[Rfam]
RNA sequence: GAUUGAUAAAGGCAAACUUACUGAAAGGUGAGGACGCAAAGCCGCGAGUCUAAGGUUGAAGUACUAUGAUAGUCGGGCCGCCAAA
Numbered sequence: 001g002a003u004u005g006a007u008a009a010a011g012g013c014a015a016a017c018u019u020a021c022u023g024a025a026a027g028g029u030g031a032g033g034a035c036g037c038a039a040a041g042c043c044g045c046g047a048g049u050c051u052a053a054g055g056u057u058g059a060a061g062u063a064c065u066a067u068g069a070u071a072g073u074c075g076g077g078c079c080g081c082c083a084a085a
Base pairs, nucleotide, nucleotide: 012037013036017032018031019030020029021028022027041078042077043076045075046074047073048070049069050068055064056063
RNA: c-di-GMP-I riboswitch aptamer
Organism: Bacillus benzoevorans